This 106-nucleotide RNA from Candidatus Uabimicrobium amorphum belongs to the Rfam family "Group II catalytic intron D1-D4-1". A search with the family's covariance model found it, with a score of 47 bits. Gene Ontology term of the family: Group II intron splicing. The pairing is the family consensus, mapped onto this sequence.
[Rfam]
RNA sequence: CUGAGGAAGCUGUGAAGUAUCCAGAGCGUUGUACAGAAGUCAGCAGAAGGCAUAGUAGGUGUAGGAAACGAGCUGAGAAAUCAGAGGACUCACCACACUGAAGGCU
Numbered sequence: 001c002u003g004a005g006g007a008a009g010c011u012g013u014g015a016a017g018u019a020u021c022c023a024g025a026g027c028g029u030u031g032u033a034c035a036g037a038a039g040u041c042a043g044c045a046g047a048a049g050g051c052a053u054a055g056u057a058g059g060u061g062u063a064g065g066a067a068a069c070g071a072g073c074u075g076a077g078a079a080a081u082c083a084g085a086g087g088a089c090u091c092a093c094c095a096c097a098c099u100g101a102a103g104g105c106u
Stems, first nucleotide, its partner, number of pairs: 001026002005022003009018003040047002049106003058099005